[Rfam]
Notes: Shown here is a 574-nucleotide part of an RNA from Acidianus brierleyi, a member of the family "Archaeal large subunit ribosomal RNA".
Nucleotides: 574
Stems, first nucleotide, its partner, number of pairs: 008568010023553001024519002028489002030486006036479002046107003049062003068101006077089003112121003135155007162193001163191005173180002203210002214241005224232002244472004252286003262274004297411004322403004338387003344360001346359004363367001369381003422443007450466005506513002
Number, partner (000 for none) and nucleotide at each position: 001000g002000g003000c004000a005000c006000c007000a008568a009567g010566c011565c012564a013563u014562u015561c016560g017559g018000u019000g020000g021000a022000u023553g024519g025518c026000u027000c028489g029488g030486c031485u032484c033483g034482g035481g036479c037478g038000c039000c040000u041000a042000g043000g044000a045000a046107g047106g048105g049062c050061g051060c052000g053000g054000c055000a056000a057000g058000c059000g060051g061050c062049g063000a064000u065000a066000u067000g068101c069100c070099c071098g072097g073096g074000g075000u076000a077089g078088g079087c080000g081000c082000a083000a084000g085000c086000a087079g088078c089077c090000u091000c092000u093000g094000a095000u096073c097072c098071c099070g100069g101068g102000a103000u104000u105048c106047c107046c108000g109000a110000a111000u112121g113120g114119g115000a116000c117000u118000u119114c120113c121112u122000g123000c124000c125000c126000g127000u128000u129000a130000g131000g132000g133000c134000g135155u136154u137153c138152c139151c140150g141149c142000c143000u144000a145000a146000a147000a148000a149141g150140u151139g152138g153137g154136a155135a156000c157000g158000g159000g160000a161000a162193c163191u164190c165189u166188c167187c168000g169000a170000a171000c172000g173180g174179a175000a176000g177000c178000a179174u180173c181000u182000u183000a184000g185000u186000a187167g188166g189165a190164g191163a192000a193162g194000g195000a196000a197000g198000a199000g200000a201000a202000a203210u204209c205000a206000a207000a208000a209204g210203a211000g212000a213000u214241u215240c216239c217238c218237u219000g220000a221000g222000u223000a224232g225231g226000g227000g228000c229000g230000a231225c232224c233000g234000a235000a236000a237218g238217g239216g240215g241214a242000a243000u244472a245471g246470c247469c248000c249000a250000a251000a252286c253285c254284a255000a256000a257000u258000c259000u260000g261000c262274c263273g264272g265271u266000g267000a268000u269000a270000a271265g272264c273263c274262g275000g276000u277000g278000g279000a280000g281000a282000u283000g284254u285253g286252g287000u288000g289000u290000u291000a292000u293000g294000c295000u296000u297411c298410u299409u300408g301000c302000c303000u304000g305000c306000g307000g308000g309000u310000u311000c312000g313000a314000c315000u316000c317000g318000c319000g320000a321000c322403c323402u324401u325400c326000c327000u328000a329000g330000c331000u332000c333000a334000u335000c336000u337000a338387g339386c340385c341000g342000a343000a344360c345000u346359c347358c348357u349356c350000u351000g352000g353000a354000a355000u356349g357348a358347g359346g360344g361000a362000c363367c364000a365000u366000a367363g368000a369381g370380g371379g372000u373000g374000a375000u376000a377000g378000u379371c380370c381369c382000g383000u384000a385340g386339g387338u388000u389000a390000a391000a392000g393000a394000u395000g396000a397000g398000u399000g400325g401324a402323a403322g404000g405000u406000g407000g408300c409299a410298a411297g412000a413000a414000g415000c416000a417000g418000a419000g420000u421000a422443c423442c424441a425440u426439c427438c428437c429000c430000u431000g432000a433000u434000u435000u436000g437428g438427g439426g440425g441424u442423g443422g444000g445000a446000a447000g448000u449000u450466a451465g452464g453463g454462g455000a456000c457000a458000c459000g460000u461000g462454c463453c464452u465451c466450u467000a468000a469247g470246g471245c472244u473000a474000a475000a476000u477000a478037c479036g480000u481035c482034c483033c484032g485031a486030g487000a488029c489028c490000g491000a492000u493000a494000g495000c496000g497000a498000a499000c500000u501000a502000a503000g504000u505000a506513c507512u508000g509000u510000g511000a512507a513506g514000g515000a516000a517000a518025g519024c520000u521000g522000a523000a524000a525000a526000g527000a528000a529000c530000c531000c532000c533000g534000g535000a536000a537000g538000g539000g540000g541000a542000g543000u544000g545000a546000a547000a548000a549000g550000a551000g552000c553023c554000u555000g556000a557000a558000a559017c560016c561015g562014a563013a564012u565011g566010g567009u568008u569000a570000c571000a572000c573000a574000g
A search with the family's covariance model found it, with a score of 2873 bits.